Shown here is a 90-nucleotide RNA sequence from Perca fluviatilis, a member of the family "mir-731 microRNA precursor family". Rfam 15.1 lists 91 matches to the family in 80 species. The family's consensus secondary structure was predicted with RNAalifold.
RNA sequence: AGGUGAUUUUCCUCAAUGACACGUUUUCUCCCGGAUUGCUGACAACCGUAAAUGCAACCGGGAAUUUCGUGUCAGCCAAGAAUGACACCA
Numbered sequence: 001a002g003g004u005g006a007u008u009u010u011c012c013u014c015a016a017u018g019a020c021a022c023g024u025u026u027u028c029u030c031c032c033g034g035a036u037u038g039c040u041g042a043c044a045a046c047c048g049u050a051a052a053u054g055c056a057a058c059c060g061g062g063a064a065u066u067u068c069g070u071g072u073c074a075g076c077c078a079a080g081a082a083u084g085a086c087a088c089c090a
Stems, first nucleotide, its partner, number of pairs: 002089004007084001009082003017074007029063006036057004042053001